[Rfam]
RNA sequence: AGGGGAUGGUGUGGCAGCGCACAACGACAUCGUGACGGGAGUGGGUCGCCCCCGACGCACCAUCCUCUUGGGAAAAAUUUUCGUGAGACC
Numbered sequence: 001a002g003g004g005g006a007u008g009g010u011g012u013g014g015c016a017g018c019g020c021a022c023a024a025c026g027a028c029a030u031c032g033u034g035a036c037g038g039g040a041g042u043g044g045g046u047c048g049c050c051c052c053c054g055a056c057g058c059a060c061c062a063u064c065c066u067c068u069u070g071g072g073a074a075a076a077a078u079u080u081u082c083g084u085g086a087g088a089c090c
Stems, first nucleotide, its partner, number of pairs: 001068013020034003024030001036054004